[Rfam]
RNA: Manganese Mn2+ riboswitch aptamer (yybP-ykoY)
RNA sequence: CAGGCUGUCAUUGGGGAGUAGCCUCCUUCCUUGAGUGAGAGGGGUUUGCGUCAACAGACUUGUCUGGCCUUGCAACAGGGCCGGCAUGGCGCAAACGGUUUUCCGGACUUGGCGAGACCUUUGACUGCACAGCCUCCAUAGCUUGAAAAAGUUAUAGGCCGGGGUCGUCGUGCAGUCAUGGGUUUGUACCGGCCGGAGUCAUU
Number, nucleotide and partner (000 for none) at each position: 001c000002a000003g000004g000005c000006u000007g000008u000009c000010a000011u000012u000013g000014g000015g000016g000017a000018g000019u000020a000021g000022c000023c000024u000025c042026c041027u040028u000029c000030c000031u000032u000033g000034a000035g000036u000037g000038a000039g000040a027041g026042g025043g000044g096045u095046u094047u093048g092049c091050g090051u089052c088053a087054a000055c000056a000057g000058a000059c000060u000061u086062g085063u084064c083065u000066g000067g000068c000069c000070u000071u000072g000073c000074a000075a000076c000077a000078g000079g000080g000081c000082c000083g064084g063085c062086a061087u053088g052089g051090c050091g049092c048093a047094a046095a045096c044097g203098g202099u201100u000101u198102u197103c196104c195105g194106g193107a000108c000109u000110u000111g000112g000113c000114g000115a000116g000117a000118c000119c000120u000121u000122u000123g000124a000125c000126u000127g000128c000129a000130c000131a000132g000133c000134c000135u000136c000137c000138a000139u000140a000141g000142c000143u000144u000145g000146a000147a000148a000149a000150a000151g000152u000153u000154a000155u000156a000157g000158g000159c000160c000161g000162g000163g000164g000165u000166c000167g000168u000169c000170g000171u000172g000173c000174a000175g000176u000177c000178a000179u000180g000181g000182g000183u000184u000185u000186g000187u000188a000189c000190c000191g000192g000193c106194c105195g104196g103197a102198g101199u000200c000201a099202u098203u097